The record is a 100-nucleotide RNA from Amborella trichopoda, which matches "MIR319 microRNA precursor family" in Rfam. The match comes from Rfam's covariance-model search (56 bits).

RNA sequence: CAGAAAUAAGGGCUCCUUUGAGGACAAAGAAAGCAUUCCGGAUCGUCUUUUUACCCAUAGAAGCAGUCAUUCUUUGGUCUAAAUGGAGCUCCAAAUUCUU
Dot-bracket structure: ......(..(((((((.(...((.(.(((...........................................))).).))..).)))))))..)......